[Rfam]
RNA: Plant signal recognition particle RNA
Organism: Panicum virgatum
RNA sequence: GCUGAGCUCGGUUGCGCGGGCUUGUAACCCGAGUGGGAGCAUUAAGGUGGUGUGGAUGUUUGGUGCGGAUGCUGGGCCUGGGCCCGUGAUACGCCUUUGCUGGCCUGCCCGUUCCAAGCUGGUAGUGGCCUGUGGGGGCUUGAGCGAAAGCUUCGGGCCUCACUGGACCUGAAGUGGUGGAAACGGCGUGAGGCGCUGGUUUCACAGAGCAGCGAUCACUGCCCGCUUCCAACGGUGGAAGGAUAACAGGCCGCUGCAUCAUGGGCCCGCUGCAGGCCCAGUGUCCCACUCUAACAGACCACCACUUUU
Numbered sequence: 001g002c003u004g005a006g007c008u009c010g011g012u013u014g015c016g017c018g019g020g021c022u023u024g025u026a027a028c029c030c031g032a033g034u035g036g037g038a039g040c041a042u043u044a045a046g047g048u049g050g051u052g053u054g055g056a057u058g059u060u061u062g063g064u065g066c067g068g069a070u071g072c073u074g075g076g077c078c079u080g081g082g083c084c085c086g087u088g089a090u091a092c093g094c095c096u097u098u099g100c101u102g103g104c105c106u107g108c109c110c111g112u113u114c115c116a117a118g119c120u121g122g123u124a125g126u127g128g129c130c131u132g133u134g135g136g137g138g139c140u141u142g143a144g145c146g147a148a149a150g151c152u153u154c155g156g157g158c159c160u161c162a163c164u165g166g167a168c169c170u171g172a173a174g175u176g177g178u179g180g181a182a183a184c185g186g187c188g189u190g191a192g193g194c195g196c197u198g199g200u201u202u203c204a205c206a207g208a209g210c211a212g213c214g215a216u217c218a219c220u221g222c223c224c225g226c227u228u229c230c231a232a233c234g235g236u237g238g239a240a241g242g243a244u245a246a247c248a249g250g251c252c253g254c255u256g257c258a259u260c261a262u263g264g265g266c267c268c269g270c271u272g273c274a275g276g277c278c279c280a281g282u283g284u285c286c287c288a289c290u291c292u293a294a295c296a297g298a299c300c301a302c303c304a305c306u307u308u309u
Stems, first nucleotide, its partner, number of pairs: 001040003004023007028037003044308009054299001057296002060293001062291001063289003067285002070283010080268008091259001093257001095256001101253007109242002112240005118233001120231003124227003127168001129166002132163001135161008143152003169174001176223005185216001187214003196207003